Rfam assigns this 114-nucleotide RNA sequence from Lacrimispora saccharolytica to the family "TPP riboswitch aptamer (THI element)". Gene Ontology term of the family: thiamine pyrophosphate binding. The family's consensus secondary structure is taken from published work. The match comes from Rfam's covariance-model search (68 bits).

[Rfam]
RNA sequence: GAAAACUGAAAGGGGUGCUGGAGAAAGUCCGGCUGAGAGUAAGCAGAAUUGCUUUAAACCCUCUAACCUGAUCUGGAUAAUGCCAGCGUAGGAAGCCUUCAGGCUAAGCCUGUU
Numbered sequence: 001g002a003a004a005a006c007u008g009a010a011a012g013g014g015g016u017g018c019u020g021g022a023g024a025a026a027g028u029c030c031g032g033c034u035g036a037g038a039g040u041a042a043g044c045a046g047a048a049u050u051g052c053u054u055u056a057a058a059c060c061c062u063c064u065a066a067c068c069u070g071a072u073c074u075g076g077a078u079a080a081u082g083c084c085a086g087c088g089u090a091g092g093a094a095g096c097c098u099u100c101a102g103g104c105u106a107a108g109c110c111u112g113u114u
Stems, first nucleotide, its partner, number of pairs: 006102005011062004016056001017033005041054004067092004073086004